[Rfam]
RNA: T-box leader
Organism: Pelosinus sp. UFO1
RNA sequence: UUAUUGGUGAUGACGGAAAAAAGUAAUUAUGUUAUUUUCAUACAGAGAGCUAGUGGUUGGUGUAAACUAGUUGAAAAUACAUAAUGAAGUUCCUUCCCGAACUGCAGACUGAAAUUUACAGUAGGUCUUGCCGUACGUCUACGUUACAGACAUAGAGCUGAUCUUAUGAUCAAAACUAGGGUGGUACCGCGGUGAUUCGUCCCUUAU
Numbered sequence: 001u002u003a004u005u006g007g008u009g010a011u012g013a014c015g016g017a018a019a020a021a022a023g024u025a026a027u028u029a030u031g032u033u034a035u036u037u038u039c040a041u042a043c044a045g046a047g048a049g050c051u052a053g054u055g056g057u058u059g060g061u062g063u064a065a066a067c068u069a070g071u072u073g074a075a076a077a078u079a080c081a082u083a084a085u086g087a088a089g090u091u092c093c094u095u096c097c098c099g100a101a102c103u104g105c106a107g108a109c110u111g112a113a114a115u116u117u118a119c120a121g122u123a124g125g126u127c128u129u130g131c132c133g134u135a136c137g138u139c140u141a142c143g144u145u146a147c148a149g150a151c152a153u154a155g156a157g158c159u160g161a162u163c164u165u166a167u168g169a170u171c172a173a174a175a176c177u178a179g180g181g182u183g184g185u186a187c188c189g190c191g192g193u194g195a196u197u198c199g200u201c202c203c204u205u206a207u
Base pairs, nucleotide, nucleotide: 007102008101015097016096017095018094026085027084028083029082030081031080038074039073040072049071050070051069052068053067054066105130106129107127108126109125110124132143133142134141159172160171161170162169163168178204179203180202181201189200190199191198192197